[Rfam]
RNA sequence: UCUCUUCCAGCGAAUCGUCGCCUCCUUGUAGGCGGCUUGCCCGAAAGGCUAGUUGGAGGAGUUUUU
Numbered sequence: 001u002c003u004c005u006u007c008c009a010g011c012g013a014a015u016c017g018u019c020g021c022c023u024c025c026u027u028g029u030a031g032g033c034g035g036c037u038u039g040c041c042c043g044a045a046a047g048g049c050u051a052g053u054u055g056g057a058g059g060a061g062u063u064u065u066u
Stems, first nucleotide, its partner, number of pairs: 002061010017036006039049003
RNA: DUF3800-IX RNA
Organism: Anaerolineae bacterium